A member of the RNA family "Selenocysteine transfer RNA" from Gonapodya prolifera, 86 nucleotides long. It scores 74 bits against the family's covariance model.
RNA sequence: GGAGUCUCGAUCUUCAAUGGUUUGGGGGACAGGCUUCAAACCUGUUGAGGGGGAGACCCCUAGUGGUUCGAUUCCACCCUGACUCC
Numbered sequence: 001g002g003a004g005u006c007u008c009g010a011u012c013u014u015c016a017a018u019g020g021u022u023u024g025g026g027g028g029a030c031a032g033g034c035u036u037c038a039a040a041c042c043u044g045u046u047g048a049g050g051g052g053g054a055g056a057c058c059c060c061u062a063g064u065g066g067u068u069c070g071a072u073u074c075c076a077c078c079c080u081g082a083c084u085c086c
Base pairs, nucleotide, nucleotide: 001086002085003084004083005082006081009078012027013026014025015024016023017022028046029045030044031043032042033041048061049060050059051058052057063077064076065075066074